[Rfam]
Nucleotides: 149
Stems, first nucleotide, its partner, number of pairs: 001053003005050002008047001012043002015040007023032001054075003058070004076115005084108008119141002
Number, partner (000 for none) and nucleotide at each position: 001053g002052g003051g004000u005050g006049c007000c008047u009000g010000a011000a012043g013042c014000c015040g016039u017038c018037u019036g020035c021034u022000u023032c024000a025000g026000g027000u028000g029000a030000c031000u032023g033000c034021g035020g036019c037018a038017g039016a040015c041000a042013g043012c044000a045000a046000a047008a048000a049006g050005c051003c052002c053001c054075a055074a056073g057000c058070g059069a060068u061067u062000u063000u064000u065000u066000c067061a068060a069059u070058c071000a072000a073056c074055u075054u076115g077114a078113g079112g080111c081000u082000c083000u084108c085107u086106g087105u088104u089103a090102u091101g092000c093000c094000u095000a096000g097000a098000c099000a100000a101091c102090a103089u104088g105087a106086u107085a108084g109000u110000a111080g112079c113078c114077u115076c116000c117000u118000g119141a120140c121000u122000u123000c124000g125000g126000a127000g128000g129000u130000g131000c132000a133000a134000g135000a136000g137000a138000a139000u140120g141119u142000c143000a144000c145000g146000a147000a148000a149000g